A member of the RNA family "mir-2 microRNA precursor family" from Orchesella cincta, 71 nucleotides long. On this family, see Lee and Ambros, Science 2001: "An extensive class of small RNAs in Caenorhabditis elegans". NCBI's taxonomy places the organism under Eukaryota, Bilateria, Mandibulata, Pancrustacea, Orchesella. The family has 56 seed sequences and 918 matches in Rfam 15.1. It scores 68 bits against the family's covariance model.
RNA sequence: AAAGUCGUCAAAGCGGCUGUGAAUUAUGUGCAGUAUUGAAUUCAUAUCACAGCCACCUUUGAUGAGCUUUG
Number, nucleotide and partner (000 for none) at each position: 001a000002a000003a000004g000005u065006c064007g063008u062009c061010a060011a059012a058013g057014c000015g054016g053017c052018u051019g050020u049021g048022a047023a000024u000025u046026a045027u044028g000029u000030g000031c000032a000033g000034u000035a000036u000037u000038g000039a000040a000041u000042u000043c000044a027045u026046a025047u022048c021049a020050c019051a018052g017053c016054c015055a000056c000057c013058u012059u011060u010061g009062a008063u007064g006065a005066g000067c000068u000069u000070u000071g000